MIR6288 microRNA precursor family: a 92-nucleotide sequence from Prunus dulcis. The base pairs follow the family's consensus structure, which was predicted with RNAalifold. Gene Ontology terms of the family: miRNA-mediated post-transcriptional gene silencing and RISC complex.
RNA sequence: UCAAAACUUGCCACUUGUUAUUUUCUAAUUAGUUCUUAAUGUGUUAAAAAAUUUCUAAAACCAAUUGAAAAAUGAUAAGUGGCUAGUUUUGG
Numbered sequence: 001u002c003a004a005a006a007c008u009u010g011c012c013a014c015u016u017g018u019u020a021u022u023u024u025c026u027a028a029u030u031a032g033u034u035c036u037u038a039a040u041g042u043g044u045u046a047a048a049a050a051a052u053u054u055c056u057a058a059a060a061c062c063a064a065u066u067g068a069a070a071a072a073u074g075a076u077a078a079g080u081g082g083c084u085a086g087u088u089u090u091g092g
Base pairs, nucleotide, nucleotide: 002091003090004089005088006087007086008085010083011082012081013080014079015078016077017076018075019074020073021072022071023070024069026067027066028065029064030063032061033060034059036057039054